Shown here is an 86-nucleotide RNA sequence from Bemisia tabaci, a member of the family "mir-277 microRNA precursor family". The family's consensus secondary structure was predicted with RNAalifold.
RNA sequence: GAAGUUUUGGGUUGCGGGCCAGAGGUGCUUUUACAUUUUGAUCCACUUUUUGUAAAUGCACUAUCUGGUACGACACUCCAAAGCCA
Numbered sequence: 001g002a003a004g005u006u007u008u009g010g011g012u013u014g015c016g017g018g019c020c021a022g023a024g025g026u027g028c029u030u031u032u033a034c035a036u037u038u039u040g041a042u043c044c045a046c047u048u049u050u051u052g053u054a055a056a057u058g059c060a061c062u063a064u065c066u067g068g069u070a071c072g073a074c075a076c077u078c079c080a081a082a083g084c085c086a
Stems, first nucleotide, its partner, number of pairs: 008080004015072002018069006025061001027059002030056006